RNA sequence: CAUUGUUCUGAUACCUUCAGAUCAGCCAUUAGAAAGGAAAGAUCAGCGAAAUCUUUUGGAUCUGAUCAACUUAAUAUAGGAACUACUGAUUUCAUUUUGUUUAGCCCAAUUCUCUGAAACAAUGAAGUAUACAAGUUCUUUCUGGACUUUUCAGUUCUGCAUCAUU
Number, nucleotide and partner (000 for none) at each position: 001c000002a000003u000004u000005g000006u000007u000008c000009u068010g067011a066012u065013a000014c000015c116016u000017u000018c000019a113020g112021a111022u000023c000024a000025g105026c104027c000028a102029u000030u000031a100032g000033a098034a097035a096036g000037g000038a000039a000040a092041g091042a090043u089044c088045a087046g086047c000048g000049a000050a084051a000052u082053c000054u000055u080056u079057u078058g077059g000060a000061u000062c000063u000064g000065a012066u011067c010068a009069a000070c000071u000072u000073a000074a000075u000076a000077u058078a057079g056080g055081a000082a052083c000084u050085a000086c046087u045088g044089a043090u042091u041092u040093c000094a000095u000096u035097u034098u033099g000100u031101u000102u028103a000104g026105c025106c000107c000108a000109a000110u000111u021112c020113u019114c000115u000116g015117a000118a166119a165120c000121a000122a162123u161124g160125a000126a000127g141128u000129a139130u000131a137132c000133a000134a000135g000136u000137u131138c000139u129140u000141u127142c000143u000144g000145g156146a155147c154148u153149u000150u000151u000152c000153a148154g147155u146156u145157c000158u000159g000160c124161a123162u122163c000164a000165u119166u118
Notes
Shown here is a 166-nucleotide RNA from Fukomys damarensis, a member of the family "Interferon gamma 5' UTR regulatory element". The family's RNA type in Rfam is cis-regulatory element. On this family, see Ben-Asouli et al., Cell 2002: "Human interferon-gamma mRNA autoregulates its translation through a pseudoknot that activates the interferon-inducible protein kinase PKR". This family represents a pseudoknot containing stem-loop structure found in the 5' UTR of interferon (IFN) gamma mRNA. This structure is thought to be involved in translational regulation and the pseudoknot has been found to activate PKR which is known to be a translational inhibitor. Mutations in the pseudoknot structure have been found to reduce PKR activation and increase the translation of IFN-gamma. The source organism's lineage runs through Eukaryota, Gnathostomata, Teleostomi, Euteleostomi and Fukomys. Pairs were carried over by alignment from the consensus structure, which is taken from published work.